[Rfam]
RNA sequence: UUUACUGUGAUUAAAUCAAUUGAUAUAACUUUUUAACUGAGGAUGUACAUGCAGGACAUAUUGUUAAGGAAUUCUUCGUUUAUGAUUUAAUAAG
Number, nucleotide and partner (000 for none) at each position: 001u094002u093003u092004a091005c000006u000007g000008u000009g000010a000011u000012u000013a000014a000015a000016u000017c000018a000019a000020u000021u000022g000023a000024u000025a000026u000027a000028a000029c000030u000031u000032u000033u000034u000035a000036a000037c000038u000039g000040a000041g000042g000043a000044u000045g000046u000047a000048c000049a000050u000051g000052c000053a000054g000055g000056a000057c000058a000059u000060a000061u000062u000063g000064u000065u000066a000067a000068g000069g000070a000071a000072u000073u000074c000075u000076u000077c000078g000079u000080u000081u000082a000083u000084g000085a000086u000087u000088u000089a000090a000091u004092a003093a002094g001